[Rfam]
RNA sequence: CCCGUCAGCGCGCUUUGCUGAUGUGGACACAAAUCGCACCCAUGUAAGUGCGAUUUGUUGCCACGUCAGCAAAGUGCGCUGACGUGG
Numbered sequence: 001c002c003c004g005u006c007a008g009c010g011c012g013c014u015u016u017g018c019u020g021a022u023g024u025g026g027a028c029a030c031a032a033a034u035c036g037c038a039c040c041c042a043u044g045u046a047a048g049u050g051c052g053a054u055u056u057g058u059u060g061c062c063a064c065g066u067c068a069g070c071a072a073a074g075u076g077c078g079c080u081g082a083c084g085u086g087g
Base pairs, nucleotide, nucleotide: 001086003084004083005082006081007080008079009078010077011076012075013074014073015072016071017070018069019068020067021066023064024063025062026061029058030057031056032055033054034053035052036051037050038049